[Rfam]
RNA sequence: ACAGAUGAAAAGCUGCGAGGCUCGCACCGUACAGGAAGACUUUCAAUAGUUCUUACCAUCUCUCGCGAGCGGGCUAAGGUCUGAGCAUUCUAAUCAUUCUUGAUUGAUCCUAGCUGGAUCCAGCUGUAACCAGCUGAAGCGGCGUAUCAGAAAUCCGACCUAGCCACUUCCCCAGAGACGGCUCCCUGCGGGCAAGAGGGAAUGUAGUGGCUGCUGGUCUUGGAACUCGCCGUAAUGAUUGGGUGGGCGACCGUUCAAAGCCUUUUGUAGCGCUUGGUCGACCCAUCCUUCAGCUCACUUCGCAGCACAAUCCCCGGAUUGUAACUCGAUUCAGACUACUCUUCGUCUGU
Numbered sequence: 001a002c003a004g005a006u007g008a009a010a011a012g013c014u015g016c017g018a019g020g021c022u023c024g025c026a027c028c029g030u031a032c033a034g035g036a037a038g039a040c041u042u043u044c045a046a047u048a049g050u051u052c053u054u055a056c057c058a059u060c061u062c063u064c065g066c067g068a069g070c071g072g073g074c075u076a077a078g079g080u081c082u083g084a085g086c087a088u089u090c091u092a093a094u095c096a097u098u099c100u101u102g103a104u105u106g107a108u109c110c111u112a113g114c115u116g117g118a119u120c121c122a123g124c125u126g127u128a129a130c131c132a133g134c135u136g137a138a139g140c141g142g143c144g145u146a147u148c149a150g151a152a153a154u155c156c157g158a159c160c161u162a163g164c165c166a167c168u169u170c171c172c173c174a175g176a177g178a179c180g181g182c183u184c185c186c187u188g189c190g191g192g193c194a195a196g197a198g199g200g201a202a203u204g205u206a207g208u209g210g211c212u213g214c215u216g217g218u219c220u221u222g223g224a225a226c227u228c229g230c231c232g233u234a235a236u237g238a239u240u241g242g243g244u245g246g247g248c249g250a251c252c253g254u255u256c257a258a259a260g261c262c263u264u265u266u267g268u269a270g271c272g273c274u275u276g277g278u279c280g281a282c283c284c285a286u287c288c289u290u291c292a293g294c295u296c297a298c299u300u301c302g303c304a305g306c307a308c309a310a311u312c313c314c315c316g317g318a319u320u321g322u323a324a325c326u327c328g329a330u331u332c333a334g335a336c337u338a339c340u341c342u343u344c345g346u347c348u349g350u
Stems, first nucleotide, its partner, number of pairs: 001350004007344003013317003017313001020070005034056001036054004081334005086237004106120005121136006139233006157219003

Overview:
Rfam assigns this 350-nucleotide RNA from Agrocybe pediades to the family "Nuclear RNase P". It scores 84 bits against the family's covariance model. Taxonomically the source falls in Agrocybe (Eukaryota, Fungi, Agaricomycetes, Agaricineae). The family is grouped with related families in Rfam's "RNaseP clan".